Source information:
The record is a 130-nucleotide RNA sequence from Cavia porcellus, which matches "Vault RNA" in Rfam. Pairs were carried over by alignment from the consensus structure, which is taken from published work. It is annotated as a non-coding RNA gene.
RNA sequence: GGGCUGGCUUUAGCCCAGCCAUUCCUUCCUUCAAGGCUGGCUUCCCGACCGCCCGGCCGAUUGGUCCGAUUGGUCCGGUGGUUCCGGUGGUUCCUUGGUUCGGGACCCGCGGGCGCUCUCCGGUCCUUUA
Numbered sequence: 001g002g003g004c005u006g007g008c009u010u011u012a013g014c015c016c017a018g019c020c021a022u023u024c025c026u027u028c029c030u031u032c033a034a035g036g037c038u039g040g041c042u043u044c045c046c047g048a049c050c051g052c053c054c055g056g057c058c059g060a061u062u063g064g065u066c067c068g069a070u071u072g073g074u075c076c077g078g079u080g081g082u083u084c085c086g087g088u089g090g091u092u093c094c095u096u097g098g099u100u101c102g103g104g105a106c107c108c109g110c111g112g113g114c115g116c117u118c119u120c121c122g123g124u125c126c127u128u129u130a
Stems, first nucleotide, its partner, number of pairs: 002125006013114004018110002026104003